[Rfam]
RNA sequence: GUCUGAGGGAAGCUCAUCGGUGGGGCUACGAUGUAAGUGCCUUGUGUCACUCUGCCCCAUAUCCCCUGGAAGGUCUGAGACUAGGACCAAAAGUGGCCCUGACAGGCUCCUUCCUGGGUUUUGGGGAGGUGAGUUCUCAGAGAAUGGGUAUCCACUUGAGGAUAGAUUGCGCAGGAGGUGCCAUGGACCCUGGCUUUGGGGAGGAGGCUGGCAAAUGCCUCCUUAGCCAGAGCUUGAAACAGACUCAUGACCAGUGAAGUGAGUUCAAUGAGUGAGGUGAGGUACCCUGCCCAGGGGUCUCAUAACCCAGUUCAGACUUCUCUAUGC
Numbered sequence: 001g002u003c004u005g006a007g008g009g010a011a012g013c014u015c016a017u018c019g020g021u022g023g024g025g026c027u028a029c030g031a032u033g034u035a036a037g038u039g040c041c042u043u044g045u046g047u048c049a050c051u052c053u054g055c056c057c058c059a060u061a062u063c064c065c066c067u068g069g070a071a072g073g074u075c076u077g078a079g080a081c082u083a084g085g086a087c088c089a090a091a092a093g094u095g096g097c098c099c100u101g102a103c104a105g106g107c108u109c110c111u112u113c114c115u116g117g118g119u120u121u122u123g124g125g126g127a128g129g130u131g132a133g134u135u136c137u138c139a140g141a142g143a144a145u146g147g148g149u150a151u152c153c154a155c156u157u158g159a160g161g162a163u164a165g166a167u168u169g170c171g172c173a174g175g176a177g178g179u180g181c182c183a184u185g186g187a188c189c190c191u192g193g194c195u196u197u198g199g200g201g202a203g204g205a206g207g208c209u210g211g212c213a214a215a216u217g218c219c220u221c222c223u224u225a226g227c228c229a230g231a232g233c234u235u236g237a238a239a240c241a242g243a244c245u246c247a248u249g250a251c252c253a254g255u256g257a258a259g260u261g262a263g264u265u266c267a268a269u270g271a272g273u274g275a276g277g278u279g280a281g282g283u284a285c286c287c288u289g290c291c292c293a294g295g296g297g298u299c300u301c302a303u304a305a306c307c308c309a310g311u312u313c314a315g316a317c318u319u320c321u322c323u324a325u326g327c
Base pairs, nucleotide, nucleotide: 008325010323013276014275015274016273017272022066023065024064025063036051037050038049039048040046075315076314077313078312079311085252088249095109096108098106099105110128111127112126113125114124115123129248130247131246132245133244134243135242151231277303278302279301280300281299282298283297
Rfam assigns this 327-nucleotide RNA from Ursus americanus to the family "Nuclear RNase P". On this family, see Frank and Pace, Annu Rev Biochem 1998: "Ribonuclease P: unity and diversity in a tRNA processing ribozyme". The family's consensus secondary structure is taken from published work. Taxonomically the source falls in Ursus (Eukaryota, Metazoa, Amniota, Mammalia). Rfam describes the family as follows. Ribonuclease P (RNase P) is a ubiquitous endoribonuclease, found in archaea, bacteria and eukarya as well as chloroplasts and mitochondria. Its best characterised activity is the generation of mature 5'-ends of tRNAs by cleaving the 5'-leader elements of precursor-tRNAs. Cellular RNase Ps are ribonucleoproteins. RNA from bacterial RNase Ps retains its catalytic activity in the absence of the protein subunit, i.e. it is a ribozyme. Isolated eukaryotic and archaeal RNase P RNA has not been shown to retain its catalytic function, but is still essential for the catalytic activity of the holoenzyme. Although the archaeal and eukaryotic holoenzyme s have a much greater protein content than the bacterial ones, the RNA cores from all the three lineages are homologous -- helices corresponding to P1, P2, P3, P4, and P10/11 are common to all cellular RNase P RNAs. Yet, there is considerable sequence variation, particularly among the eukaryotic RNAs.